[Rfam]
RNA sequence: AAGCAUCGAAGCGACGCACUCCUCCUCCCAGCGUCCUUCGUGGAGACUGGCAAUCCUCCUCCUCCCAAUAAUUGCCAGUCAGCAUUCGAAACCCGGCGCUCCUCCCGCGCCGGGUUUCGCGC
Numbered sequence: 001a002a003g004c005a006u007c008g009a010a011g012c013g014a015c016g017c018a019c020u021c022c023u024c025c026u027c028c029c030a031g032c033g034u035c036c037u038u039c040g041u042g043g044a045g046a047c048u049g050g051c052a053a054u055c056c057u058c059c060u061c062c063u064c065c066c067a068a069u070a071a072u073u074g075c076c077a078g079u080c081a082g083c084a085u086u087c088g089a090a091a092c093c094c095g096g097c098g099c100u101c102c103u104c105c106c107g108c109g110c111c112g113g114g115u116u117u118c119g120c121g122c
Stems, first nucleotide, its partner, number of pairs: 007040003011036001013035005045080010089117011
Shown here is a 122-nucleotide RNA from Gellertiella hungarica, a member of the family "Alphaproteobacterial ar14". The family's RNA type in Rfam is small RNA. The pairing is the family consensus, mapped onto this sequence. For this family Rfam cites "A survey of sRNA families in alpha-proteobacteria" (del Val et al., RNA Biol, 2012). The source organism's lineage runs through Bacteria, Pseudomonadota, Alphaproteobacteria, Hyphomicrobiales and Gellertiella. Smr14C2 was renamed NfeR1 (Nodule Formation Efficiency RNA) highly expressed in salt stress and during the symbiotic interaction on legume roots. Rfam links the family to the GO term biological process involved in symbiotic interaction.